[Rfam]
RNA sequence: AGCACAAGUGAUGAACAGCAGAGGGACUUAAUGCUGAAACGUGAUGUCUCACUAGGACAUGCUGAUGUGC
Numbered sequence: 001a002g003c004a005c006a007a008g009u010g011a012u013g014a015a016c017a018g019c020a021g022a023g024g025g026a027c028u029u030a031a032u033g034c035u036g037a038a039a040c041g042u043g044a045u046g047u048c049u050c051a052c053u054a055g056g057a058c059a060u061g062c063u064g065a066u067g068u069g070c
Stems, first nucleotide, its partner, number of pairs: 002070005
The family of this 70-nucleotide RNA from Equus caballus is "Small nucleolar RNA SNORD82". On this family, see Galardi et al., Mol Cell Biol 2002: "Purified box C/D snoRNPs are able to reproduce site-specific 2'-O-methylation of target RNA in vitro". snoRNA U82 or Z25 is found in both humans and mice. Rfam 15.1 lists 649 matches to the family in 590 species. NCBI's taxonomy places the organism under Eukaryota, Eumetazoa, Amniota, Boreoeutheria, Equus.